RNA sequence: UAGUGUUAUAACUCUUCUAUAAUUUGUGUAGCAGGUUUUCUGGUCUUCACUAGAAAAACCCAU
Numbered sequence: 001u002a003g004u005g006u007u008a009u010a011a012c013u014c015u016u017c018u019a020u021a022a023u024u025u026g027u028g029u030a031g032c033a034g035g036u037u038u039u040c041u042g043g044u045c046u047u048c049a050c051u052a053g054a055a056a057a058a059c060c061c062a063u
Base pairs, nucleotide, nucleotide: 034060035059036058037056038055039054040053041052042051043050044049
Dot-bracket structure: .................................(((((((((((....)))))))).)))...
Background:
U7 small nuclear RNA: a 63-nucleotide RNA from Pongo abelii. From the family's description: Animal histone pre-mRNAs are spliced by a different mechanism than nuclear pre-mRNAs and self-splicing introns. Pairs were carried over by alignment from the consensus structure, which was predicted with PFOLD. Rfam 15.1 lists 10,439 matches to the family in 569 species.